Rfam assigns this 122-nucleotide sequence to the family "LOOT RNA".
The family's consensus secondary structure is taken from published work.
RNA sequence: AGCCUAAACCAUCGGAGAAAUCCGAUGGCAUGGCUCAAAAGACCCAUCGCUGAUACUGAACCCCGCGUUCAGCAACUCAGCGAUGGGCCAUAUCCCGAAAGGGGUGUGGGGCCGCAAGGCCU
Dot-bracket structure: ((((....(((((((......)))))))...)))).......((((((((((((.((((((.....)))))).)..))))))))))).((((((((....))))))))(((((....)))))
Numbered sequence: 001a002g003c004c005u006a007a008a009c010c011a012u013c014g015g016a017g018a019a020a021u022c023c024g025a026u027g028g029c030a031u032g033g034c035u036c037a038a039a040a041g042a043c044c045c046a047u048c049g050c051u052g053a054u055a056c057u058g059a060a061c062c063c064c065g066c067g068u069u070c071a072g073c074a075a076c077u078c079a080g081c082g083a084u085g086g087g088c089c090a091u092a093u094c095c096c097g098a099a100a101g102g103g104g105u106g107u108g109g110g111g112c113c114g115c116a117a118g119g120c121c122u
Stems, first nucleotide, its partner, number of pairs: 001035004009028007043087011054074001056072006089108008109122005